Annotation: The family of this 110-nucleotide RNA sequence from Arcicella sp. is "SAM riboswitch aptamer (S box leader)". NCBI's taxonomy places the organism under Bacteria, Pseudomonadati, Cytophagales, Flectobacillaceae, Arcicella. Pairs were carried over by alignment from the consensus structure, which is taken from published work. Rfam's curators write: The SAM riboswitch is found upstream of a number of genes which code for proteins involved in methionine or cysteine biosynthesis in Gram-positive bacteria.
[Rfam]
RNA sequence: GAUUUAUAAAGAAGAAGGGAGAGAAUAGGCUCAAUGAACUUCUGGCAACCUACCAAACCGUAAAGGCAAGGUGCUAAUUCCUACCAUUUUUAAUUAGUAGCCAGUAAACG
Numbered sequence: 001g002a003u004u005u006a007u008a009a010a011g012a013a014g015a016a017g018g019g020a021g022a023g024a025a026u027a028g029g030c031u032c033a034a035u036g037a038a039c040u041u042c043u044g045g046c047a048a049c050c051u052a053c054c055a056a057a058c059c060g061u062a063a064a065g066g067c068a069a070g071g072u073g074c075u076a077a078u079u080c081c082u083a084c085c086a087u088u089u090u091u092a093a094u095u096a097g098u099a100g101c102c103a104g105u106a107a108a109c110g
Stems, first nucleotide, its partner, number of pairs: 003108005013043005021032003026083004044075004049071002051068001053066002079103001084100001086098003